This 108-nucleotide RNA sequence from Gossypium mustelinum belongs to the Rfam family "MIR7502 microRNA precursor family". The match comes from Rfam's covariance-model search (74 bits). Gene Ontology terms of the family: RISC complex and miRNA-mediated post-transcriptional gene silencing.

[Rfam]
RNA sequence: UGUUAAAGAUUUCAUCCAUUUCUAGUGUUAAAAAUUGGCAUGGCUAACAGAAUAACCAGACAGUUAUAAACCAAUUUUUAACAGAAAAAAUAGAUGAAAUUUUUGUUA
Numbered sequence: 001u002g003u004u005a006a007a008g009a010u011u012u013c014a015u016c017c018a019u020u021u022c023u024a025g026u027g028u029u030a031a032a033a034a035u036u037g038g039c040a041u042g043g044c045u046a047a048c049a050g051a052a053u054a055a056c057c058a059g060a061c062a063g064u065u066a067u068a069a070a071c072c073a074a075u076u077u078u079u080a081a082c083a084g085a086a087a088a089a090a091u092a093g094a095u096g097a098a099a100u101u102u103u104u105g106u107u108a
Stems, first nucleotide, its partner, number of pairs: 002107001004105013018091004023086001026083001028081009
Overview: Rfam 15.1 lists 74,505 matches to the family in 24 species. Taxonomically the source falls in Gossypium (Eukaryota, Gunneridae, Pentapetalae, Malvales).